[Rfam]
RNA sequence: UUGAAGAAUUUGAAGACUUCAGCUUGCAAACUUGGUUAAUUUGAGAAUCCAUCUUGUAGAGUUGAAGAAUUUAUAGACUUCAACU
Numbered sequence: 001u002u003g004a005a006g007a008a009u010u011u012g013a014a015g016a017c018u019u020c021a022g023c024u025u026g027c028a029a030a031c032u033u034g035g036u037u038a039a040u041u042u043g044a045g046a047a048u049c050c051a052u053c054u055u056g057u058a059g060a061g062u063u064g065a066a067g068a069a070u071u072u073a074u075a076g077a078c079u080u081c082a083a084c085u
Base pairs, nucleotide, nucleotide: 001083002082003081004080005079006078009075011073012072013071014070017067018066019065020064021063025058026057027056028055033051034050035049037047
The family of this 85-nucleotide RNA sequence from Solanum commersonii is "MIR8024 microRNA precursor family". NCBI's taxonomy places the organism under Eukaryota, Viridiplantae, Mesangiospermae, Solanoideae, Solanum.